chrB-b RNA: a 56-nucleotide sequence from Ramlibacter ginsenosidimutans.

RNA sequence: UGGGGUCACGAGCAGGCUCCCCGCAUCCGCAAGAGGCUCGCGCCUCCAAGCUCUGC
Numbered sequence: 001u002g003g004g005g006u007c008a009c010g011a012g013c014a015g016g017c018u019c020c021c022c023g024c025a026u027c028c029g030c031a032a033g034a035g036g037c038u039c040g041c042g043c044c045u046c047c048a049a050g051c052u053c054u055g056c
Base pairs, nucleotide, nucleotide: 001023002022003021004020005019012056013055014054015053016052033046034045035044036043037042
Lineage of the source: Bacteria > Pseudomonadota > Betaproteobacteria > Comamonadaceae > Ramlibacter. The family's consensus secondary structure is taken from published work.